[Rfam]
RNA sequence: AUUGAUUUGCCCCCUACUUCGAGCUUUAUGGCUUUGGCCAGGUUUCAUCUUUGAGUGAGCCGCUCGUUCAACACUAAACCAAAGACAGGGCAAAU
Numbered sequence: 001a002u003u004g005a006u007u008u009g010c011c012c013c014c015u016a017c018u019u020c021g022a023g024c025u026u027u028a029u030g031g032c033u034u035u036g037g038c039c040a041g042g043u044u045u046c047a048u049c050u051u052u053g054a055g056u057g058a059g060c061c062g063c064u065c066g067u068u069c070a071a072c073a074c075u076a077a078a079c080c081a082a083a084g085a086c087a088g089g090g091c092a093a094a095u
Base pairs, nucleotide, nucleotide: 005095006094007093008092009091010090011089012088020066021065022064023063024062029040030039031038032037041061042060043059045058046057
RNA: RAGATH-13 RNA